[Rfam]
RNA sequence: CAGCAUCCUUAAUAAACCCCCCGGUUGCAUUCGGUGGUUUCUGGGACAAGAAAGGGUGCAAGAUCAAUCUUAGAAUCAUCCAAAGCUGAGAGCUAUGUGUCAGUAGCUCUUGGCUAUUUCACCUCUAAGACAGAA
Numbered sequence: 001c002a003g004c005a006u007c008c009u010u011a012a013u014a015a016a017c018c019c020c021c022c023g024g025u026u027g028c029a030u031u032c033g034g035u036g037g038u039u040u041c042u043g044g045g046a047c048a049a050g051a052a053a054g055g056g057u058g059c060a061a062g063a064u065c066a067a068u069c070u071u072a073g074a075a076u077c078a079u080c081c082a083a084a085g086c087u088g089a090g091a092g093c094u095a096u097g098u099g100u101c102a103g104u105a106g107c108u109c110u111u112g113g114c115u116a117u118u119u120c121a122c123c124u125c126u127a128a129g130a131c132a133g134a135a
Stems, first nucleotide, its partner, number of pairs: 003059004009051002020045005027038002064134002068130007084115007092107002098103001

Notes: Shown here is a 135-nucleotide RNA sequence from Channa argus, a member of the family "Small nucleolar RNA SNORA14". About the family: ACA14 is a member of the H/ACA class of snoRNA that guide the sites of modification of uridines to pseudouridines. The match comes from Rfam's covariance-model search (54 bits). NCBI's taxonomy places the organism under Eukaryota, Opisthokonta, Bilateria, Euteleostomi, Channa. Its family is annotated with nucleolus and RNA processing in the Gene Ontology. By type it is an H/ACA-box small nucleolar RNA. The base pairs follow the family's consensus structure, which was predicted with RNAfold.